[Rfam]
RNA sequence: UCCCUCCUGAUCCCUUUCCCAUCAGAUCUGAAUACCGAUCUUGUGGUCGAAAAAGGAGGAAAAGCAACAUUCAGACUGGCCUUGGCCUUUUUGCUGGCACAGCCCUGCUCUGAGUGGGGCCGGUUUGAAGACAAU
Numbered sequence: 001u002c003c004c005u006c007c008u009g010a011u012c013c014c015u016u017u018c019c020c021a022u023c024a025g026a027u028c029u030g031a032a033u034a035c036c037g038a039u040c041u042u043g044u045g046g047u048c049g050a051a052a053a054a055g056g057a058g059g060a061a062a063a064g065c066a067a068c069a070u071u072c073a074g075a076c077u078g079g080c081c082u083u084g085g086c087c088u089u090u091u092u093g094c095u096g097g098c099a100c101a102g103c104c105c106u107g108c109u110c111u112g113a114g115u116g117g118g119g120c121c122g123g124u125u126u127g128a129a130g131a132c133a134a135u
Base pairs, nucleotide, nucleotide: 003059004058005057006056007055019046020045021044023043025040026039027038028037076123077122078121079120080119081118082117083116084115
Dot-bracket structure: ..(((((...........(((.(.((((........))))..))))........)))))................(((((((((..............................)))))))))............
The family of this 135-nucleotide sequence from Bambusicola thoracicus is "Small nucleolar RNA SNORA61". Rfam describes the family as follows. ACA61 is a member of the H/ACA class of snoRNA that guide the sites of modification of uridines to pseudouridines.